[Rfam]
RNA: mir-1290 microRNA precursor family
RNA sequence: UGGCAUCAUGUUGGCACUCAAAAAGUUUCGGAUUUUGGAGAAUUUCGAAUUUCGGAUUUUUGGAUCGGGGAUGCUC
Numbered sequence: 001u002g003g004c005a006u007c008a009u010g011u012u013g014g015c016a017c018u019c020a021a022a023a024a025g026u027u028u029c030g031g032a033u034u035u036u037g038g039a040g041a042a043u044u045u046c047g048a049a050u051u052u053c054g055g056a057u058u059u060u061u062g063g064a065u066c067g068g069g070g071a072u073g074c075u076c
Base pairs, nucleotide, nucleotide: 002075003074004073005072006071007070011068012067013066014065018063019062020061021060022059023058024057027056028055029054030053031052032051034049035048036047037046038045039044